[Rfam]
RNA sequence: AAAGUUCGACAGACAAUCGCUGGCGGCUUCGCGCCGCGAGAGGAAAGUCCGGGCUCCACAGGGCAGGAUGCUGGAUAACGUCCAGUCAGCGCGAGCUGAAGGAUAGUGCCACAGAAAUGGACCGCCGAUGGCCGCUCGCGAGAGCGGAUCAGGCAAGGAUGGAACCGUGGUGUAAGAGACCACGAGGGGCACUGGCGACUUUGCCCCUGGUAAACCCCAUCUGGAGCAAGACCGAAGAGGAACGCAGCGGCUCUCGAGGCCGCAGCCCUAGCCCGGGGCGCGUUCGGGUUGGUCGCUUGAGCCGUGCGGCAACGUACGGCCUAGAAAGAUGAUUGUCGCUUCCAUCCGUGGGAGGACCGCCAGGUCCGCGACGACCACCGGAAGUACAGAACCCGGCUUACGGCGAGCUUUCCGU
Numbered sequence: 001a002a003a004g005u006u007c008g009a010c011a012g013a014c015a016a017u018c019g020c021u022g023g024c025g026g027c028u029u030c031g032c033g034c035c036g037c038g039a040g041a042g043g044a045a046a047g048u049c050c051g052g053g054c055u056c057c058a059c060a061g062g063g064c065a066g067g068a069u070g071c072u073g074g075a076u077a078a079c080g081u082c083c084a085g086u087c088a089g090c091g092c093g094a095g096c097u098g099a100a101g102g103a104u105a106g107u108g109c110c111a112c113a114g115a116a117a118u119g120g121a122c123c124g125c126c127g128a129u130g131g132c133c134g135c136u137c138g139c140g141a142g143a144g145c146g147g148a149u150c151a152g153g154c155a156a157g158g159a160u161g162g163a164a165c166c167g168u169g170g171u172g173u174a175a176g177a178g179a180c181c182a183c184g185a186g187g188g189g190c191a192c193u194g195g196c197g198a199c200u201u202u203g204c205c206c207c208u209g210g211u212a213a214a215c216c217c218c219a220u221c222u223g224g225a226g227c228a229a230g231a232c233c234g235a236a237g238a239g240g241a242a243c244g245c246a247g248c249g250g251c252u253c254u255c256g257a258g259g260c261c262g263c264a265g266c267c268c269u270a271g272c273c274c275g276g277g278g279c280g281c282g283u284u285c286g287g288g289u290u291g292g293u294c295g296c297u298u299g300a301g302c303c304g305u306g307c308g309g310c311a312a313c314g315u316a317c318g319g320c321c322u323a324g325a326a327a328g329a330u331g332a333u334u335g336u337c338g339c340u341u342c343c344a345u346c347c348g349u350g351g352g353a354g355g356a357c358c359g360c361c362a363g364g365u366c367c368g369c370g371a372c373g374a375c376c377a378c379c380g381g382a383a384g385u386a387c388a389g390a391a392c393c394c395g396g397c398u399u400a401c402g403g404c405g406a407g408c409u410u411u412c413c414g415u
Base pairs, nucleotide, nucleotide: 001411002410003409004408005407006406007405008404010402012337013336014335015334016333017332018331020040021039023037024036025035026034027033045399046398047397049396050395051394052393053392054226055225056224057223061274062273063272064271066222067221068220069219070218071085072084073083074082075081086100087098088097089096090095101217102216106215107214108211109210110209122158123157124154125153126152129151130150131149133147166184167183168182169181170180171179186207187206188205189204190203191202194199230294231293232292233291240285241284242283243282244281245280265279266278267277268276269275301320302319303318304317305316306315307314308313